This 152-nucleotide RNA sequence from Anabas testudineus belongs to the Rfam family "U12 minor spliceosomal RNA".
The pairing is the family consensus, mapped onto this sequence.
Rfam classes the family as a spliceosomal small nuclear RNA.
RNA sequence: AUGCCUUAAACUGAUGAGUAAGGAAAAUAACGGCGCGGGGUGACGCCCGCGUCCUCGUGCAACUAACGAGAUGAAUUUUUGGCGGGACCAGGUCUGACCGCGGAGGUGACUCACCUACUUCGUGAGAUGCCUCGUGGGACCAGGACCUUCCC
Numbered sequence: 001a002u003g004c005c006u007u008a009a010a011c012u013g014a015u016g017a018g019u020a021a022g023g024a025a026a027a028u029a030a031c032g033g034c035g036c037g038g039g040g041u042g043a044c045g046c047c048c049g050c051g052u053c054c055u056c057g058u059g060c061a062a063c064u065a066a067c068g069a070g071a072u073g074a075a076u077u078u079u080u081g082g083c084g085g086g087a088c089c090a091g092g093u094c095u096g097a098c099c100g101c102g103g104a105g106g107u108g109a110c111u112c113a114c115c116u117a118c119u120u121c122g123u124g125a126g127a128u129g130c131c132u133c134g135u136g137g138g139a140c141c142a143g144g145a146c147c148u149u150c151c152c
Stems, first nucleotide, its partner, number of pairs: 004023005032053008054070005084152004091147005104132005110126005